Shown here is a 386-nucleotide RNA from Paraliobacillus quinghaiensis, a member of the family "Bacterial RNase P class B".
The family is grouped with related families in Rfam's "RNaseP clan".
It scores 322 bits against the family's covariance model.
Gene Ontology terms of the family: dimeric ribonuclease P complex, tRNA processing and ribonuclease P activity.
Pairs were carried over by alignment from the consensus structure, which is taken from published work.
Ribonuclease P (RNase P) is a ubiquitous endoribonuclease, found in archaea, bacteria and eukarya as well as chloroplasts and mitochondria. Its best characterised activity is the generation of mature 5'-ends of tRNAs by cleaving the 5'-leader elements of precursor-tRNAs. Cellular RNase Ps are ribonucleoproteins. RNA from bacterial RNase Ps retains its catalytic activity in the absence of the protein subunit, i.e. it is a ribozyme.
RNA sequence: UGUUUUGAGUAAUCGCUGCAUAUAUUUUAUGUGUAGAGGAAAGUCCAUGCUCACACAGGCUGAGAUGCUUGUAGUGUUCAUGCUUGAUGAAUUCAUAAAUCAAGGUAACCAUGUUUGGUUAACGGCAGGGGAAUCACCUAAGUCCUUUUGGAUAAGGUGUUAUACUCUUGAAAGUGCCACAGUGACGUAGUCAGGUUGGAAACAGCUUGAGUGGAACGCGGUAAACCCCAUGAGUGAGCAACCCAAAUUUAGGUAGGGGCAUCUUGGAGUAGGGAAUUCAACCGAAACAAGGACAAGCUAAAUCAGCUUGUAGAUAGAUGAUUACUGCUUAUGCACGAGGCUGACCACCGUUUGUAGUGCUACAGUACAGAACAUGGCUUAUAAAA
Numbered sequence: 001u002g003u004u005u006u007g008a009g010u011a012a013u014c015g016c017u018g019c020a021u022a023u024a025u026u027u028u029a030u031g032u033g034u035a036g037a038g039g040a041a042a043g044u045c046c047a048u049g050c051u052c053a054c055a056c057a058g059g060c061u062g063a064g065a066u067g068c069u070u071g072u073a074g075u076g077u078u079c080a081u082g083c084u085u086g087a088u089g090a091a092u093u094c095a096u097a098a099a100u101c102a103a104g105g106u107a108a109c110c111a112u113g114u115u116u117g118g119u120u121a122a123c124g125g126c127a128g129g130g131g132a133a134u135c136a137c138c139u140a141a142g143u144c145c146u147u148u149u150g151g152a153u154a155a156g157g158u159g160u161u162a163u164a165c166u167c168u169u170g171a172a173a174g175u176g177c178c179a180c181a182g183u184g185a186c187g188u189a190g191u192c193a194g195g196u197u198g199g200a201a202a203c204a205g206c207u208u209g210a211g212u213g214g215a216a217c218g219c220g221g222u223a224a225a226c227c228c229c230a231u232g233a234g235u236g237a238g239c240a241a242c243c244c245a246a247a248u249u250u251a252g253g254u255a256g257g258g259g260c261a262u263c264u265u266g267g268a269g270u271a272g273g274g275a276a277u278u279c280a281a282c283c284g285a286a287a288c289a290a291g292g293a294c295a296a297g298c299u300a301a302a303u304c305a306g307c308u309u310g311u312a313g314a315u316a317g318a319u320g321a322u323u324a325c326u327g328c329u330u331a332u333g334c335a336c337g338a339g340g341c342u343g344a345c346c347a348c349c350g351u352u353u354g355u356a357g358u359g360c361u362a363c364a365g366u367a368c369a370g371a372a373c374a375u376g377g378c379u380u381a382u383a384a385a386a
Stems, first nucleotide, its partner, number of pairs: 004386003007382001008326007016036006041380003045377005050238005055072006078233005083104006105123001106121006124228002127168004135159004142153003174226002176222003191210008242258003262292005293311006328365002333360004
Dot-bracket structure: ...(((((((((((.((((((.........))))))....[[[.[[[[[(((((((((((......)))))).....(((((((((((..........))))))(((((((....)))))).)((.((((....((((...(((......)))..)))).....)))).....(((((............((((((((....)))))))).........)))..))))))))))))))...(((...........)))...(((((.....................)))))((((((.......))))))........))))))).((...((((....................))))...)).......]]]]]]]].).)))